[Rfam]
Annotation
This 69-nucleotide RNA sequence from Pieris brassicae belongs to the Rfam family "mir-11 microRNA precursor family". Rfam links the family to the GO terms cellular response to gamma radiation, miRNA-mediated post-transcriptional gene silencing and RISC complex. Lineage of the source: Eukaryota > Hexapoda > Lepidoptera > Pierini > Pieris. Its Rfam clan is "mir-6 clan".
RNA sequence: UUUCGUAGCUAGCACUCGGCCUGUGACUUGUGUUGCAUUCACAUCACAGUCAGAGUUCUAGCUACGCGG
Numbered sequence: 001u002u003u004c005g006u007a008g009c010u011a012g013c014a015c016u017c018g019g020c021c022u023g024u025g026a027c028u029u030g031u032g033u034u035g036c037a038u039u040c041a042c043a044u045c046a047c048a049g050u051c052a053g054a055g056u057u058c059u060a061g062c063u064a065c066g067c068g069g
Base pairs, nucleotide, nucleotide: 004066005065006064009061010060011059012058014056015055016054017053021049022048023047024046025045026044030042031041032040
Dot-bracket structure: ...(((..((((.((((...((((((...(((.......))).))))))...)))).))))..)))...